Shown here is a 75-nucleotide sequence from Monodelphis domestica, a member of the family "U1A polyadenylation inhibition element (PIE)". By type it is a cis-regulatory element. Rfam 15.1 lists 510 matches to the family in 331 species. Rfam's curators write: This family represents the U1A polyadenylation inhibition element (PIE).

[Rfam]
RNA sequence: UACCUCAACAUUGUACCCAGAGUCUGCCCUACAGUCGUUGCACCUGGAGCUGCAGGGAGAAAAAAAAUGUUUGAU
Numbered sequence: 001u002a003c004c005u006c007a008a009c010a011u012u013g014u015a016c017c018c019a020g021a022g023u024c025u026g027c028c029c030u031a032c033a034g035u036c037g038u039u040g041c042a043c044c045u046g047g048a049g050c051u052g053c054a055g056g057g058a059g060a061a062a063a064a065a066a067a068u069g070u071u072u073g074a075u
Stems, first nucleotide, its partner, number of pairs: 006052002009049001017047004022036001024034003